A member of the RNA family "mir-548 microRNA precursor family" from Homo sapiens, 83 nucleotides long. The base pairs follow the family's consensus structure, which was predicted with WAR. For this family Rfam cites "Ultra-high throughput sequencing-based small RNA discovery and discrete statistical biomarker analysis in a collection of cervical tumours and matched controls" (Witten et al., BMC Biol, 2010). Rfam links the family to the GO terms miRNA-mediated post-transcriptional gene silencing and RISC complex.
RNA sequence: UAUUAGGUUGGUGCAAAAGUAAUUGCAGUUUUGCCAUUUAAAAGUAAUGGCAAAACUGCAAUUACUUUUGCACCAACCUAAUA
Numbered sequence: 001u002a003u004u005a006g007g008u009u010g011g012u013g014c015a016a017a018a019g020u021a022a023u024u025g026c027a028g029u030u031u032u033g034c035c036a037u038u039u040a041a042a043a044g045u046a047a048u049g050g051c052a053a054a055a056c057u058g059c060a061a062u063u064a065c066u067u068u069u070g071c072a073c074c075a076a077c078c079u080a081a082u083a
Base pairs, nucleotide, nucleotide: 001083002082003081004080005079006078007077008076009075010074011073012072013071014070015069016068017067018066019065020064021063022062023061024060025059026058027057028056029055030054031053032052033051034050035049036048038047039046040045